[Rfam]
RNA sequence: GAGGGUAGGCCCCUCGGAGCCGGCCGUCAGGGGCAGGCUUCAAGCCACUGCAAGCUGCGACGGUAAAGAGCCGUGGUGGUGAGCGUUGCUGAAAAGGCGGGCUUCGAGCCCGUCAGGU
Numbered sequence: 001g002a003g004g005g006u007a008g009g010c011c012c013c014u015c016g017g018a019g020c021c022g023g024c025c026g027u028c029a030g031g032g033g034c035a036g037g038c039u040u041c042a043a044g045c046c047a048c049u050g051c052a053a054g055c056u057g058c059g060a061c062g063g064u065a066a067a068g069a070g071c072c073g074u075g076g077u078g079g080u081g082a083g084c085g086u087u088g089c090u091g092a093a094a095a096g097g098c099g100g101g102c103u104u105c106g107a108g109c110c111c112g113u114c115a116g117g118u
Base pairs, nucleotide, nucleotide: 001015002014003013004012005011016041017040018039019038020037021036023034024033025032046117048091050089051088052087053086054080055079057077058076061073062072063071064070096114097113098112099111100110101109
Rfam assigns this 118-nucleotide sequence from Tropicimonas sp. IMCC6043 to the family "Group II catalytic intron D1-D4-2". About the family: Group II introns are found in rRNA, tRNA and mRNA of organelles in fungi, plants and protists, and also in mRNA in bacteria. Gene Ontology term of the family: Group II intron splicing. The family has 144 seed sequences and 1,231 matches in Rfam 15.1.